Shown here is an 84-nucleotide RNA sequence from Camphora micrantha, a member of the family "Small nucleolar RNA R44/J54/Z268 family".
The organism belongs to Camphora, within Eukaryota.
The base pairs follow the family's consensus structure, which was predicted with PFOLD.
The family's RNA type in Rfam is C/D-box small nucleolar RNA.
Its family is annotated with RNA processing and nucleolus in the Gene Ontology.
Clan: SNORD74 clan.
A search with the family's covariance model found it, with a score of 65 bits.
RNA sequence: AAUGCAAAUGAUGACAGAGUAGACAGGGACUCAGCAUUCCUAUGGAACAUGAUUACUUGGUCUUGGGAAUCUCUCUGAUGCAUA
Numbered sequence: 001a002a003u004g005c006a007a008a009u010g011a012u013g014a015c016a017g018a019g020u021a022g023a024c025a026g027g028g029a030c031u032c033a034g035c036a037u038u039c040c041u042a043u044g045g046a047a048c049a050u051g052a053u054u055a056c057u058u059g060g061u062c063u064u065g066g067g068a069a070u071c072u073c074u075c076u077g078a079u080g081c082a083u084a
Stems, first nucleotide, its partner, number of pairs: 002083005